[Rfam]
RNA sequence: CUGUAGUGCAUUGUAGUUGCAUUGCAUGUUGUGGCAGUAACUGCAAUGUUUCUGCAGUGCAUUACAG
Numbered sequence: 001c002u003g004u005a006g007u008g009c010a011u012u013g014u015a016g017u018u019g020c021a022u023u024g025c026a027u028g029u030u031g032u033g034g035c036a037g038u039a040a041c042u043g044c045a046a047u048g049u050u051u052c053u054g055c056a057g058u059g060c061a062u063u064a065c066a067g
Stems, first nucleotide, its partner, number of pairs: 001067004006063001007061010019049001021047006
Notes:
The record is a 67-nucleotide sequence from Nyctibius grandis, which matches "mir-33 microRNA precursor family" in Rfam. Its family is annotated with RISC complex and gene silencing by miRNA in the Gene Ontology. The match comes from Rfam's covariance-model search (71 bits).